A member of the RNA family "Group II catalytic intron D1-D4-6" from Gemmatimonas sp., 236 nucleotides long. The literature on the family includes a 2001 paper in EMBO J by Chu et al., "Control of branch-site choice by a group II intron". Rfam 15.1 lists 1,617 matches to the family in 661 species. The organism belongs to Gemmatimonas, within Bacteria. From the family's description: Group II introns are found in rRNA, tRNA and mRNA of organelles in fungi, plants and protists, and also in mRNA in bacteria.
[Rfam]
RNA sequence: GGAGUUCACCAUGUGAAAUGCCUGUGAAACAUGUAGCCGACCGGGCGGCGGUUCUGGGUAACCAGAGGGUCGGAGCCUCGGAAGGCGCACGGUAUGAGCCGUAGCGAAAGCGAACCCGUUUUGGCCUCGAAACGCUACAGACGAGAGCGGCCAACCUGCCGAAGAAGGCGAAGCCAGCACGGGUGACGAAGACACAGGCAAGUGCAGUCAUCCGGCUCUCCGGGGUGGUAAGGGAC
Numbered sequence: 001g002g003a004g005u006u007c008a009c010c011a012u013g014u015g016a017a018a019u020g021c022c023u024g025u026g027a028a029a030c031a032u033g034u035a036g037c038c039g040a041c042c043g044g045g046c047g048g049c050g051g052u053u054c055u056g057g058g059u060a061a062c063c064a065g066a067g068g069g070u071c072g073g074a075g076c077c078u079c080g081g082a083a084g085g086c087g088c089a090c091g092g093u094a095u096g097a098g099c100c101g102u103a104g105c106g107a108a109a110g111c112g113a114a115c116c117c118g119u120u121u122u123g124g125c126c127u128c129g130a131a132a133c134g135c136u137a138c139a140g141a142c143g144a145g146a147g148c149g150g151c152c153a154a155c156c157u158g159c160c161g162a163a164g165a166a167g168g169c170g171a172a173g174c175c176a177g178c179a180c181g182g183g184u185g186a187c188g189a190a191g192a193c194a195c196a197g198g199c200a201a202g203u204g205c206a207g208u209c210a211u212c213c214g215g216c217u218c219u220c221c222g223g224g225g226u227g228g229u230a231a232g233g234g235a236c
Stems, first nucleotide, its partner, number of pairs: 010033005019201001022198001036086003041081003044077002046072004052067006121230001122227001124226006143220006149175003155168003180214008189203001